[Rfam]
RNA sequence: ACCUUAUAUAGAUGUAGUGACGCAAGACAGUUGCGCAUUUCCCUGUAAGGGUAGUGUUUUAAUAGAAGUAUAAGCGACAAGCCUUAUUGUGUGGCUAAGAGUCGAAAUAAGAUGAGUUUAUACGAAACAGGCUAACCGUAAGGCCUUGAGUUGAAAAACUCUAAAAUUAACCUAGAAUUCGAAUUUCUGAAAUUUUGUGUUUUCUAGUUACGGUGGA
Numbered sequence: 001a002c003c004u005u006a007u008a009u010a011g012a013u014g015u016a017g018u019g020a021c022g023c024a025a026g027a028c029a030g031u032u033g034c035g036c037a038u039u040u041c042c043c044u045g046u047a048a049g050g051g052u053a054g055u056g057u058u059u060u061a062a063u064a065g066a067a068g069u070a071u072a073a074g075c076g077a078c079a080a081g082c083c084u085u086a087u088u089g090u091g092u093g094g095c096u097a098a099g100a101g102u103c104g105a106a107a108u109a110a111g112a113u114g115a116g117u118u119u120a121u122a123c124g125a126a127a128c129a130g131g132c133u134a135a136c137c138g139u140a141a142g143g144c145c146u147u148g149a150g151u152u153g154a155a156a157a158a159c160u161c162u163a164a165a166a167u168u169a170a171c172c173u174a175g176a177a178u179u180c181g182a183a184u185u186u187c188u189g190a191a192a193u194u195u196u197g198u199g200u201u202u203u204c205u206a207g208u209u210a211c212g213g214u215g216g217a
Stems, first nucleotide, its partner, number of pairs: 001052002003049006010040006017034005022028001068123008083111006093103002096100001129146005135214006141167001148161005172207006178199001180197004
Overview: Shown here is a 217-nucleotide sequence, a member of the family "IS605-orfB-I RNA". The sequence is in the family's curated seed alignment. The family's RNA type in Rfam is small RNA.